[Rfam]
RNA sequence: AUGAUAGUAGGGGGAGAGUGUACAGACGAGUUUUAUGUACCGCCGAAGGAGCAAGCUAUAAAGGCGAAUCUCUCAGGCAAACAGACUCUUACUUGACG
Numbered sequence: 001a002u003g004a005u006a007g008u009a010g011g012g013g014g015a016g017a018g019u020g021u022a023c024a025g026a027c028g029a030g031u032u033u034u035a036u037g038u039a040c041c042g043c044c045g046a047a048g049g050a051g052c053a054a055g056c057u058a059u060a061a062a063g064g065c066g067a068a069u070c071u072c073u074c075a076g077g078c079a080a081a082c083a084g085a086c087u088c089u090u091a092c093u094u095g096a097c098g
Base pairs, nucleotide, nucleotide: 006093007092008091009090010089011088012087013086020040021039022038023037042078043077044076045074046073049072050071051070055065056064
A member of the RNA family "Glycine riboswitch aptamer" from Cerasibacillus quisquiliarum, 98 nucleotides long. The base pairs follow the family's consensus structure. The match comes from Rfam's covariance-model search (69 bits). The family is grouped with related families in Rfam's "Glycine riboswitch clan". From the family's description: This family represents the bacterial glycine riboswitch.